Rfam assigns this 82-nucleotide sequence to the family "RT-18 RNA". It is one of the family's seed sequences. By type it is a small RNA.
RNA sequence: UGCCCCUUGGCAAAAAUAGAGUCGAAACUGGAUUGGCCUAGUAAAUCCAUUAUGAUGUGAAAAGCCGAUAGACAAAAAUAAG
Numbered sequence: 001u002g003c004c005c006c007u008u009g010g011c012a013a014a015a016a017u018a019g020a021g022u023c024g025a026a027a028c029u030g031g032a033u034u035g036g037c038c039u040a041g042u043a044a045a046u047c048c049a050u051u052a053u054g055a056u057g058u059g060a061a062a063a064g065c066c067g068a069u070a071g072a073c074a075a076a077a078a079u080a081a082g
Stems, first nucleotide, its partner, number of pairs: 001012004021073003032069006044058001046055002